[Rfam]
RNA sequence: UUACUCCCUCCGUCCUAAAAUAUAAGAACGUUUUUUACACUAACAUAGUGUAAAAAUCAUUCUUAUAUUUUAGGACAGAGGGAGUAC
Numbered sequence: 001u002u003a004c005u006c007c008c009u010c011c012g013u014c015c016u017a018a019a020a021u022a023u024a025a026g027a028a029c030g031u032u033u034u035u036u037a038c039a040c041u042a043a044c045a046u047a048g049u050g051u052a053a054a055a056a057u058c059a060u061u062c063u064u065a066u067a068u069u070u071u072a073g074g075a076c077a078g079a080g081g082g083a084g085u086a087c
Stems, first nucleotide, its partner, number of pairs: 003085003007081004013075005019069010030058001032056010
RNA: MIR1120/MIR1122 microRNA precursor family